[Rfam]
RNA: U4 spliceosomal RNA
Organism: Propithecus coquereli
RNA sequence: AAGCUUGCGCAGUGGCAGUAUGGCAGCCAGCGAGGUUUAUCCGAGGCGCGAUUAUUGCUGACUGUAAACUCUCCCCAGUACCCCGCAGAGACGACUUGCAAUAUAGUCGGCACUGGCAAUUUUGAUGGUCCCUACAGGAC
Numbered sequence: 001a002a003g004c005u006u007g008c009g010c011a012g013u014g015g016c017a018g019u020a021u022g023g024c025a026g027c028c029a030g031c032g033a034g035g036u037u038u039a040u041c042c043g044a045g046g047c048g049c050g051a052u053u054a055u056u057g058c059u060g061a062c063u064g065u066a067a068a069c070u071c072u073c074c075c076c077a078g079u080a081c082c083c084c085g086c087a088g089a090g091a092c093g094a095c096u097u098g099c100a101a102u103a104u105a106g107u108c109g110g111c112a113c114u115g116g117c118a119a120u121u122u123u124g125a126u127g128g129u130c131c132c133u134a135c136a137g138g139a140c
Base pairs, nucleotide, nucleotide: 020052021051023049024048026047027046028045034042035041085117086116088113090111092109093108094107095106096105128140129139130138131137